[Rfam]
RNA sequence: AGGGAGUAUCUGAAAGCUGAGAUGCUGCCUGAUAGUCUUCCUAGAGAAAACUCUGUAGUUUCCUGCUUGUAGUACUUUUGCGAGUCCUGCAAGUUCCAAAUCUUUAGGGAUAUUA
Numbered sequence: 001a002g003g004g005a006g007u008a009u010c011u012g013a014a015a016g017c018u019g020a021g022a023u024g025c026u027g028c029c030u031g032a033u034a035g036u037c038u039u040c041c042u043a044g045a046g047a048a049a050a051c052u053c054u055g056u057a058g059u060u061u062c063c064u065g066c067u068u069g070u071a072g073u074a075c076u077u078u079u080g081c082g083a084g085u086c087c088u089g090c091a092a093g094u095u096c097c098a099a100a101u102c103u104u105u106a107g108g109g110a111u112a113u114u115a
Base pairs, nucleotide, nucleotide: 001030002029003028005026006025007024008023009022010021011020052108053107054106065094066093067092068091069090070089071088072087074085075084076083